[Rfam]
RNA sequence: CUGCGGCGUCGGAAUUGUCCGGCGCCGUGGUUUUAGGCGAACCGCAGCUCACAAAGUCGCGGUUCCUACUUGAAAAUCGAAGACCAGCAGGGGCAUCCGGGCUGGUACCCGGACUAUCUGCGGGAUCCGAAGUGGCUUUUACCCGAGUCGCUGACCAAGGACUUUUAAAGCUGAUGCGGUUUCCACGCCGGUGGUGGCCCCUUACCGAGGGUGACCA
Numbered sequence: 001c002u003g004c005g006g007c008g009u010c011g012g013a014a015u016u017g018u019c020c021g022g023c024g025c026c027g028u029g030g031u032u033u034u035a036g037g038c039g040a041a042c043c044g045c046a047g048c049u050c051a052c053a054a055a056g057u058c059g060c061g062g063u064u065c066c067u068a069c070u071u072g073a074a075a076a077u078c079g080a081a082g083a084c085c086a087g088c089a090g091g092g093g094c095a096u097c098c099g100g101g102c103u104g105g106u107a108c109c110c111g112g113a114c115u116a117u118c119u120g121c122g123g124g125a126u127c128c129g130a131a132g133u134g135g136c137u138u139u140u141a142c143c144c145g146a147g148u149c150g151c152u153g154a155c156c157a158a159g160g161a162c163u164u165u166u167a168a169a170g171c172u173g174a175u176g177c178g179g180u181u182u183c184c185a186c187g188c189c190g191g192u193g194g195u196g197g198c199c200c201c202u203u204a205c206c207g208a209g210g211g212u213g214a215c216c217a
Stems, first nucleotide, its partner, number of pairs: 001030013039065006047057003089202005094196002096113006114194005120188003124183002127179002131175001133173007146163004
The record is a 217-nucleotide RNA sequence from Zestomonas carbonaria, which matches "sucA-II RNA" in Rfam. The organism belongs to Zestomonas, within Bacteria. Pairs were carried over by alignment from the consensus structure, which is taken from published work. By type it is a cis-regulatory element.